[Rfam]
RNA sequence: AAACUUGAAUGUCCUCUCCCAUUGGAUCUUGGUGGUCAUAAAAAGAGGGAGAAUGUUACUGAAGCUAGCCUCCCGCCAUUGCGGCCUGGCAUAUAGCAUGCAGGCUAGUUUCAAACAGGA
Numbered sequence: 001a002a003a004c005u006u007g008a009a010u011g012u013c014c015u016c017u018c019c020c021a022u023u024g025g026a027u028c029u030u031g032g033u034g035g036u037c038a039u040a041a042a043a044a045g046a047g048g049g050a051g052a053a054u055g056u057u058a059c060u061g062a063a064g065c066u067a068g069c070c071u072c073c074c075g076c077c078a079u080u081g082c083g084g085c086c087u088g089g090c091a092u093a094u095a096g097c098a099u100g101c102a103g104g105c106u107a108g109u110u111u112c113a114a115a116c117a118g119g120a
Stems, first nucleotide, its partner, number of pairs: 004047003019035005065108007080098003
A member of the RNA family "Small nucleolar RNA SNORA61" from Castor canadensis, 120 nucleotides long.
Gene Ontology terms of the family: nucleolus and RNA processing.
Rfam's curators write: ACA61 is a member of the H/ACA class of snoRNA that guide the sites of modification of uridines to pseudouridines.
The base pairs follow the family's consensus structure, which was predicted with PFOLD.